[Rfam]
The record is a 441-nucleotide part of an RNA from Thermoactinomyces daqus, which matches "Bacterial large subunit ribosomal RNA" in Rfam. It scores 2981 bits against the family's covariance model.
RNA sequence: CUCCCCGAAAUAGCUUUAGGGCUAGCCUCGGAGCAGGAGUGAUGGAGGUAGAGCACUGAUUGGGCUAGGGGCCCUCACCGGGUUACCGAACUCAGUUAAACUCCGAAUGCCAUCCACUUUUCCUCCGGGAGUCAGACUGCGAGUGCUAAGAUCCGUAGUCAAAAGGGAAACAGCCCAGACCACCAGCUAAGGUCCCCAAGUAACCGCUAAGUGGGAAAGGAUGUGGAGUUGCCCAGACAACCAGGAUGUUGGCUUAGAAGCAGCCAUCAUUCAAAGAGUGCGUAAUAGCUCACUGGUCAAGUGACUCUGCGCCGAAAAUGUAACGGGGCUAAGCGGUUCACCGAAGCUGUGGAUGUUGCCGAAGGCAACAUGGUAGGGGAGCGUUCCAAGCGGCGUCGAAGCCGCAUCGUGAGAUGCGGUGGAGUGCUUGGAAGUGAGAAU
Numbered sequence: 001c002u003c004c005c006c007g008a009a010a011u012a013g014c015u016u017u018a019g020g021g022c023u024a025g026c027c028u029c030g031g032a033g034c035a036g037g038a039g040u041g042a043u044g045g046a047g048g049u050a051g052a053g054c055a056c057u058g059a060u061u062g063g064g065c066u067a068g069g070g071g072c073c074c075u076c077a078c079c080g081g082g083u084u085a086c087c088g089a090a091c092u093c094a095g096u097u098a099a100a101c102u103c104c105g106a107a108u109g110c111c112a113u114c115c116a117c118u119u120u121u122c123c124u125c126c127g128g129g130a131g132u133c134a135g136a137c138u139g140c141g142a143g144u145g146c147u148a149a150g151a152u153c154c155g156u157a158g159u160c161a162a163a164a165g166g167g168a169a170a171c172a173g174c175c176c177a178g179a180c181c182a183c184c185a186g187c188u189a190a191g192g193u194c195c196c197c198a199a200g201u202a203a204c205c206g207c208u209a210a211g212u213g214g215g216a217a218a219g220g221a222u223g224u225g226g227a228g229u230u231g232c233c234c235a236g237a238c239a240a241c242c243a244g245g246a247u248g249u250u251g252g253c254u255u256a257g258a259a260g261c262a263g264c265c266a267u268c269a270u271u272c273a274a275a276g277a278g279u280g281c282g283u284a285a286u287a288g289c290u291c292a293c294u295g296g297u298c299a300a301g302u303g304a305c306u307c308u309g310c311g312c313c314g315a316a317a318a319u320g321u322a323a324c325g326g327g328g329c330u331a332a333g334c335g336g337u338u339c340a341c342c343g344a345a346g347c348u349g350u351g352g353a354u355g356u357u358g359c360c361g362a363a364g365g366c367a368a369c370a371u372g373g374u375a376g377g378g379g380a381g382c383g384u385u386c387c388a389a390g391c392g393g394c395g396u397c398g399a400a401g402c403c404g405c406a407u408c409g410u411g412a413g414a415u416g417c418g419g420u421g422g423a424g425u426g427c428u429u430g431g432a433a434g435u436g437a438g439a440a441u
Stems, first nucleotide, its partner, number of pairs: 001381006011024005026131001027129007036122001037119005042113004051104001052102002057098003061094004068087002070084005135160007143152002165176003180352004185348003191342003200339001202338006219313002223310010240297005246270003251265003271275001276291001280289002353371008382436001384433007393425002401420008